[Rfam]
Nucleotides: 241
Stems, first nucleotide, its partner, number of pairs: 011037005019031003023209001025207002040090002044085003048080001050075008059066002132232003136228002151226006157183003162177004188220005194214005
Number, partner (000 for none) and nucleotide at each position: 001000a002000c003000a004000g005000u006000c007000c008000c009000a010000c011037c012036a013035g014034u015033c016000u017000a018000a019031u020030g021029a022000c023209u024000a025207a026206c027000c028000a029021u030020c031019a032000g033015g034014a035013c036012u037011g038000u039000a040090c041089c042000a043000a044085c045084c046083c047000c048080u049000c050075c051074g052073c053072g054071u055070a056069c057068c058000a059066u060065g061000g062000u063000g064000a065060c066059a067000a068057g069056g070055u071054a072053c073052g074051u075050g076000a077000a078000g079000c080048a081000g082000a083046g084045g085044g086000c087000a088000a089041g090040g091000g092000a093000a094000a095000u096000a097000c098000c099000a100000g101000g102000c103000c104000a105000u106000a107000a108000g109000c110000c111000a112000a113000a114000u115000a116000a117000g118000g119000u120000u121000g122000a123000a124000g125000g126000u127000u128000g129000u130000u131000a132232g133231c134230c135000a136228c137227g138000a139000a140000a141000g142000u143000u144000a145000u146000u147000a148000a149000u150000u151226g152225c153224g154223g155222a156221g157183g158182u159181c160000a161000a162177u163176c164175g165174c166000g167000u168000u169000c170000a171000u172000a173000u174165g175164c176163g177162g178000a179000a180000a181159g182158a183157c184000a185000a186000c187000a188220u189219u190218a191217c192216c193000c194214u195213a196212g197211a198210c199000a200000u201000u202000a203000u204000g205000g206026g207025u208000g209023a210198g211197u212196c213195u214194a215000a216192g217191g218190u219189a220188g221156c222155u223154c224153u225152g226151c227137c228136g229000g230134g231133g232132u233000c234000u235000u236000a237000a238000g239000a240000c241000c